[Rfam]
RNA sequence: AAGGUUGCCUAUGCCACAGCAAUGGAUUGGUUUAUGGCGGUGUGCUAUACUUUU
Dot-bracket structure: (((...(..((.(((((.((.(((((....))))).)).))).))))..).)))
Numbered sequence: 001a002a003g004g005u006u007g008c009c010u011a012u013g014c015c016a017c018a019g020c021a022a023u024g025g026a027u028u029g030g031u032u033u034a035u036g037g038c039g040g041u042g043u044g045c046u047a048u049a050c051u052u053u054u
Stems, first nucleotide, its partner, number of pairs: 001054003007050001010047002013045002015042003019038002022035005

Editing element of GABA-3 exon 9: a 54-nucleotide RNA from Aquarana catesbeiana. The literature on the family includes a 2007 paper in RNA by Ohlson et al., "Editing modifies the GABA(A) receptor subunit alpha3". It is annotated as a cis-regulatory element. The family has 52 seed sequences and 4,208 matches in Rfam 15.1. The match comes from Rfam's covariance-model search (62 bits).